RNA: Bacterial RNase P class A
RNA sequence: UGAGUCGGCCGGGCGGCCGCGUCGGGGUGCGUCCCCGUCGAGGAAAGUCCGGACUCCACAGGGCAGGGUGGUUGCUAACGGCAACCCGGGGUGACCCGCGGGAAAGUGCCACAGAAAGCAGACCGCCCGGCGGAGUGCCCAGGCACUCCGGCCGAGCAAGGGUGAAACGGUGGUGUAAGAGACCACCAGCGCCCCGGGUGACCGGGGCGGCUCGGUAAACCCCACCCGGAGCAAGGCCAAGAGGACACCGCCAGGUGUCUGCGCAGGCGUUCGAGGGUUGCCCGCCCGAUGCCUGCGGGUAGGCCGCUGGAGCCUGCCGGCGACGGCAGGCCGAGAUGGAUGGCCGCCGACUGGGAGCGCCGCAAGGCCCCCACGAACAGGAUCCGGCUUACAGGCCGACUCGUCCG
Numbered sequence: 001u002g003a004g005u006c007g008g009c010c011g012g013g014c015g016g017c018c019g020c021g022u023c024g025g026g027g028u029g030c031g032u033c034c035c036c037g038u039c040g041a042g043g044a045a046a047g048u049c050c051g052g053a054c055u056c057c058a059c060a061g062g063g064c065a066g067g068g069u070g071g072u073u074g075c076u077a078a079c080g081g082c083a084a085c086c087c088g089g090g091g092u093g094a095c096c097c098g099c100g101g102g103a104a105a106g107u108g109c110c111a112c113a114g115a116a117a118g119c120a121g122a123c124c125g126c127c128c129g130g131c132g133g134a135g136u137g138c139c140c141a142g143g144c145a146c147u148c149c150g151g152c153c154g155a156g157c158a159a160g161g162g163u164g165a166a167a168c169g170g171u172g173g174u175g176u177a178a179g180a181g182a183c184c185a186c187c188a189g190c191g192c193c194c195c196g197g198g199u200g201a202c203c204g205g206g207g208c209g210g211c212u213c214g215g216u217a218a219a220c221c222c223c224a225c226c227c228g229g230a231g232c233a234a235g236g237c238c239a240a241g242a243g244g245a246c247a248c249c250g251c252c253a254g255g256u257g258u259c260u261g262c263g264c265a266g267g268c269g270u271u272c273g274a275g276g277g278u279u280g281c282c283c284g285c286c287c288g289a290u291g292c293c294u295g296c297g298g299g300u301a302g303g304c305c306g307c308u309g310g311a312g313c314c315u316g317c318c319g320g321c322g323a324c325g326g327c328a329g330g331c332c333g334a335g336a337u338g339g340a341u342g343g344c345c346g347c348c349g350a351c352u353g354g355g356a357g358c359g360c361c362g363c364a365a366g367g368c369c370c371c372c373a374c375g376a377a378c379a380g381g382a383u384c385c386g387g388c389u390u391a392c393a394g395g396c397c398g399a400c401u402c403g404u405c406c407g
Stems, first nucleotide, its partner, number of pairs: 001403010011392001012348007020040002023037005045390003049387005054231004061283004066227005071085005086100001087098004101222002106220002108216003123161002125157002128154004133149001169187006189211001190209008235305004263296006275287004312331008